[Rfam]
RNA sequence: GCCUGGUGGUUCCUGGAGUCAGCUCUGAAGUGCUGAACUGUAGGUUUUUUAUAACAGGCACAAAUUAAUUCUGCAGUUUUUUGCAUGGAAACUGUCGUCAUCGCAGCUUUCCAUAGCCCGGUUGCAGAAACACAU
Dot-bracket structure: ((((...(...((((.(.(((((........)))))..).))))....)......))))...........(.((((((....((((((.((((((.......)))).)).)))).))..)))))).)........